[Rfam]
RNA: terC RNA
RNA sequence: GCCGUGGACCGGGCCCCUCUGACGGCGUUGCGCCGUGAUGUCGGACCACUUCG
Numbered sequence: 001g002c003c004g005u006g007g008a009c010c011g012g013g014c015c016c017c018u019c020u021g022a023c024g025g026c027g028u029u030g031c032g033c034c035g036u037g038a039u040g041u042c043g044g045a046c047c048a049c050u051u052c053g
Stems, first nucleotide, its partner, number of pairs: 006047002009044004022036005